[Rfam]
RNA sequence: CUUCUCUUUCAUGCCUUGAGUGUAGGACCGUUGAGAUUGUAAUUACCCUCCCACACCCAAGGCUUGCAGGAGAGC
Number, nucleotide and partner (000 for none) at each position: 001c000002u074003u073004c072005u071006c000007u069008u068009u000010c066011a065012u000013g063014c062015c061016u060017u059018g058019a000020g056021u055022g054023u053024a000025g051026g050027a049028c000029c000030g046031u045032u000033g000034a000035g000036a000037u000038u000039g000040u000041a000042a000043u000044u000045a031046c030047c000048c000049u027050c026051c025052c000053a023054c022055a021056c020057c000058c018059a017060a016061g015062g014063c013064u000065u011066g010067c000068a008069g007070g000071a005072g004073a003074g002075c000

The family of this 75-nucleotide RNA from Microtus ochrogaster is "mir-532 microRNA precursor family". It scores 94 bits against the family's covariance model. The organism belongs to Microtus, within Eukaryota.